[Rfam]
RNA sequence: AAUGCGAUAACCCGAAAAGCAUAAACAGAGUAGGGA
Numbered sequence: 001a002a003u004g005c006g007a008u009a010a011c012c013c014g015a016a017a018a019g020c021a022u023a024a025a026c027a028g029a030g031u032a033g034g035g036a
Base pairs, nucleotide, nucleotide: 002022003021004020005019011035012034013033

This 36-nucleotide sequence from Fulvivirga imtechensis belongs to the Rfam family "DUF805b RNA". Pairs were carried over by alignment from the consensus structure, which is taken from published work. Rfam classes the family as a cis-regulatory element. The source organism's lineage runs through Bacteria, Bacteroidota, Cytophagia, Fulvivirgaceae and Fulvivirga imtechensis.